[Rfam]
RNA: Mammalian CPEB3 ribozyme
Organism: Crocodylus porosus
RNA sequence: AGAGAUCACAAGUUUGAAGCCGCAGCAGAAGCACUCAUGGUGUAGCCUGUCAAAUUCCAAUGAAAUCUGUGAAUUCUGCU
Numbered sequence: 001a002g003a004g005a006u007c008a009c010a011a012g013u014u015u016g017a018a019g020c021c022g023c024a025g026c027a028g029a030a031g032c033a034c035u036c037a038u039g040g041u042g043u044a045g046c047c048u049g050u051c052a053a054a055u056u057c058c059a060a061u062g063a064a065a066u067c068u069g070u071g072a073a074u075u076c077u078g079c080u
Stems, first nucleotide, its partner, number of pairs: 016047001019046002024080007031043003051069002054066003